[Rfam]
RNA sequence: GCUUAGCCCCGAUUGAAGCGGCAUCCUUUUUCCUGUUCCUUUAACAGGAAAAAGAUACAGCGGAAAGCGGGAACGGCU
Numbered sequence: 001g002c003u004u005a006g007c008c009c010c011g012a013u014u015g016a017a018g019c020g021g022c023a024u025c026c027u028u029u030u031u032c033c034u035g036u037u038c039c040u041u042u043a044a045c046a047g048g049a050a051a052a053a054g055a056u057a058c059a060g061c062g063g064a065a066a067g068c069g070g071g072a073a074c075g076g077c078u
Base pairs, nucleotide, nucleotide: 009070010069011068013066014065018061019060023056024055025054029051030050031049032048033047034046035045036044
Description: Shown here is a 78-nucleotide sequence from Flavobacterium pallidum, a member of the family "Flavo-1 RNA". A search with the family's covariance model found it, with a score of 77 bits. Pairs were carried over by alignment from the consensus structure, which is taken from published work. Taxonomically the source falls in Flavobacterium (Bacteria, Bacteroidota, Flavobacteriia, Flavobacteriaceae).